MIR2593 microRNA precursor family: a 115-nucleotide sequence from Trifolium pratense. A search with the family's covariance model found it, with a score of 98 bits. Rfam 15.1 lists 1,262 matches to the family in 6 species.
RNA sequence: UUAUAAGCAAAAAUCCACUUUCUAGGUUCAUUGUAUAUUUAAUGAAUGUGGUCUAAAUAUUAGACCAGAUUCAUUAAACAUACAAUGAACCUAGAAAGUAGAUUUUUGCUUAUAA
Numbered sequence: 001u002u003a004u005a006a007g008c009a010a011a012a013a014u015c016c017a018c019u020u021u022c023u024a025g026g027u028u029c030a031u032u033g034u035a036u037a038u039u040u041a042a043u044g045a046a047u048g049u050g051g052u053c054u055a056a057a058u059a060u061u062a063g064a065c066c067a068g069a070u071u072c073a074u075u076a077a078a079c080a081u082a083c084a085a086u087g088a089a090c091c092u093a094g095a096a097a098g099u100a101g102a103u104u105u106u107u108g109c110u111u112a113u114a115a
Stems, first nucleotide, its partner, number of pairs: 002114006009107005015101001017099009027089010038078007049067004